[Rfam]
This 100-nucleotide RNA from Planococcus lenghuensis belongs to the Rfam family "Purine riboswitch aptamer". The base pairs follow the family's consensus structure, which is taken from published work. Lineage of the source: Bacteria > Bacillati > Bacillota > Caryophanales > Planococcus.
RNA sequence: ACAGCACCCCCAUAUAGCAUCUGUAUAACCUUAAGAAUAUGGCUUAAGGGUCUCUACCAGGAACCAUAAAAUCCUGAUUACAGAAAACGACUCCUUCGUU
Numbered sequence: 001a002c003a004g005c006a007c008c009c010c011c012a013u014a015u016a017g018c019a020u021c022u023g024u025a026u027a028a029c030c031u032u033a034a035g036a037a038u039a040u041g042g043c044u045u046a047a048g049g050g051u052c053u054c055u056a057c058c059a060g061g062a063a064c065c066a067u068a069a070a071a072u073c074c075u076g077a078u079u080a081c082a083g084a085a086a087a088c089g090a091c092u093c094c095u096u097c098g099u100u
Stems, first nucleotide, its partner, number of pairs: 020084006029049007058076005